[Rfam]
RNA sequence: AGAAGUUCAAUUUGUAAGUCACUCUGGAUAAGAGCGUCUGCUAAAUGACGUAAA
Numbered sequence: 001a002g003a004a005g006u007u008c009a010a011u012u013u014g015u016a017a018g019u020c021a022c023u024c025u026g027g028a029u030a031a032g033a034g035c036g037u038c039u040g041c042u043a044a045a046u047g048a049c050g051u052a053a054a
Base pairs, nucleotide, nucleotide: 013043014041015040016039020036022034023033024032025031